[Rfam]
RNA sequence: UCCCCCGAUGAUGAACACAAAUCAAAAUAAAACGUUAAAAGUAGUGAACUGAUCACUAUAGAUUGAUGAGUGAUAUGUUCUGAGGGGAA
Numbered sequence: 001u002c003c004c005c006c007g008a009u010g011a012u013g014a015a016c017a018c019a020a021a022u023c024a025a026a027a028u029a030a031a032a033c034g035u036u037a038a039a040a041g042u043a044g045u046g047a048a049c050u051g052a053u054c055a056c057u058a059u060a061g062a063u064u065g066a067u068g069a070g071u072g073a074u075a076u077g078u079u080c081u082g083a084g085g086g087g088a089a
Stems, first nucleotide, its partner, number of pairs: 001089001003087004